[Rfam]
The family of this 176-nucleotide RNA sequence from Priestia filamentosa is "Lysine riboswitch aptamer". Gene Ontology term of the family: lysine biosynthetic process.
RNA sequence: CGGUGAGGUAGAGGUUGCGCGUAUUAGGAGUAACAUAUGGGAAGCAAGUGGAGCUUAUGAACAUAUGUGAAAGGAAUGAGCGCCGAAGCUUAUAAAAAACCACUUUUUUUAUAAGCUGGGCCUGUAUUAAAUAAGUACAGGACUGCCACAAGUUUUUGUGGAGGGCUAUCAGAGAG
Numbered sequence: 001c002g003g004u005g006a007g008g009u010a011g012a013g014g015u016u017g018c019g020c021g022u023a024u025u026a027g028g029a030g031u032a033a034c035a036u037a038u039g040g041g042a043a044g045c046a047a048g049u050g051g052a053g054c055u056u057a058u059g060a061a062c063a064u065a066u067g068u069g070a071a072a073g074g075a076a077u078g079a080g081c082g083c084c085g086a087a088g089c090u091u092a093u094a095a096a097a098a099a100c101c102a103c104u105u106u107u108u109u110u111a112u113a114a115g116c117u118g119g120g121c122c123u124g125u126a127u128u129a130a131a132u133a134a135g136u137a138c139a140g141g142a143c144u145g146c147c148a149c150a151a152g153u154u155u156u157u158g159u160g161g162a163g164g165g166c167u168a169u170c171a172g173a174g175a176g
Stems, first nucleotide, its partner, number of pairs: 007170005017083004022078004033068007087117012118144002121141008146161006